[Rfam]
RNA sequence: AACAGGUGAUGAAAAAAAGUUUCGGUCCCAGAUGAUGUCUAGUGAUAAUUAAACAUUUUUCUGAUGUU
Numbered sequence: 001a002a003c004a005g006g007u008g009a010u011g012a013a014a015a016a017a018a019g020u021u022u023c024g025g026u027c028c029c030a031g032a033u034g035a036u037g038u039c040u041a042g043u044g045a046u047a048a049u050u051a052a053a054c055a056u057u058u059u060u061c062u063g064a065u066g067u068u
Base pairs, nucleotide, nucleotide: 001068002067003066004065
RNA: Small nucleolar RNA SNORD73